Background
This 56-nucleotide RNA sequence from Enterobacteriaceae bacterium strain FGI 57 belongs to the Rfam family "ClpQY promoter". A reference for the family is Lien et al. (2009), "Regulation of clpQ(+)Y(+) (hslV(+)U(+)) gene expression in Escherichia coli", Open Microbiol J. Lineage of the source: Bacteria > Pseudomonadota > Gammaproteobacteria > Enterobacterales > Enterobacteriaceae.

RNA sequence: CCCCGCAAAGCUUGCGGGGCCCCUAUUCCGUAUUUGCAACAAGGGGUCUGCUCGUG
Numbered sequence: 001c002c003c004c005g006c007a008a009a010g011c012u013u014g015c016g017g018g019g020c021c022c023c024u025a026u027u028c029c030g031u032a033u034u035u036g037c038a039a040c041a042a043g044g045g046g047u048c049u050g051c052u053c054g055u056g
Base pairs, nucleotide, nucleotide: 001019002018003017004016005015006014007013008012

Rfam classes the family as a cis-regulatory element.
Gene Ontology term of the family: mRNA stabilization.